[Rfam]
RNA: mir-632 microRNA precursor family
Organism: Equus caballus
RNA sequence: GUGGCUGACGGGAGGCGGAGCAGCGAACGAGGGCGUCGGCCAUUUUGUGCCUGUUUCCUGUGGGA
Numbered sequence: 001g002u003g004g005c006u007g008a009c010g011g012g013a014g015g016c017g018g019a020g021c022a023g024c025g026a027a028c029g030a031g032g033g034c035g036u037c038g039g040c041c042a043u044u045u046u047g048u049g050c051c052u053g054u055u056u057c058c059u060g061u062g063g064g065a
Stems, first nucleotide, its partner, number of pairs: 002065001005064002008061011020048004025041001028038003